[Rfam]
Nucleotides: 112
Stems, first nucleotide, its partner, number of pairs: 001112008015027003029094002031084002033046004041082002049060003064080005086097003
Number, partner (000 for none) and nucleotide at each position: 001112g002111g003110a004109u005108c006107u007106u008105c009000g010000g011000g012000g013000c014000a015027g016026g017025g018000u019000g020000a021000a022000a023000u024000u025017c026016c027015c028000g029094a030093c031084c032083g033046g034045u035044g036043g037000u038000a039000u040000a041082g042081u043036c044035c045034a046033c047000g048000a049060a050059a051058g052000u053000a054000u055000u056000u057000g058051c059050u060049u061000u062000g063000a064080u065079u066078u067077g068076g069000u070000g071000a072000a073000a074000u075000u076068c077067c078066a079065a080064a081042a082041c083032c084031g085000a086097c087096a088095g089000u090000a091000g092000a093030g094029u095088c096087u097086g098000g099000a100000u101000g102000a103000g104000a105008g106007a107006a108005g109004a110003u111002u112001c